[Rfam]
RNA sequence: GGAGGUAGAUAGGUUGCUGGUGUGCCUCGCGGUCUUCAAAACCGUUGUGGGGGGUUAAGAGCCCUCUGGGUGGGUUCGAUUCCCACCUCCUCC
Numbered sequence: 001g002g003a004g005g006u007a008g009a010u011a012g013g014u015u016g017c018u019g020g021u022g023u024g025c026c027u028c029g030c031g032g033u034c035u036u037c038a039a040a041a042c043c044g045u046u047g048u049g050g051g052g053g054g055u056u057a058a059g060a061g062c063c064c065u066c067u068g069g070g071u072g073g074g075u076u077c078g079a080u081u082c083c084c085a086c087c088u089c090c091u092c093c
Base pairs, nucleotide, nucleotide: 001093002092003091004090005089008086011027012026013025015024016023017022029045030044031043032042033041048068049067050066051065052064071085072084073083074082
RNA: Selenocysteine transfer RNA
Organism: Enterocloster bolteae